[Rfam]
RNA: Ribosomal protein L20 leader
RNA sequence: UGAGUAAAGAAGAAGCGCCCGCUUCUCACCUGAUUGACGCUUUUAGGCAGUUAGCAGGUUUACGUGAAUUUUAACAUUGUACGUAAUGUGUGGGUGUCUUCACCCGCACUUUUUUAUUUGC
Numbered sequence: 001u002g003a004g005u006a007a008a009g010a011a012g013a014a015g016c017g018c019c020c021g022c023u024u025c026u027c028a029c030c031u032g033a034u035u036g037a038c039g040c041u042u043u044u045a046g047g048c049a050g051u052u053a054g055c056a057g058g059u060u061u062a063c064g065u066g067a068a069u070u071u072u073a074a075c076a077u078u079g080u081a082c083g084u085a086a087u088g089u090g091u092g093g094g095u096g097u098c099u100u101c102a103c104c105c106g107c108a109c110u111u112u113u114u115u116a117u118u119u120g121c
Base pairs, nucleotide, nucleotide: 011026012025013024014023015022016021028059029058030057036052037051038050039048040047089108090107091106092105093104094103095102096101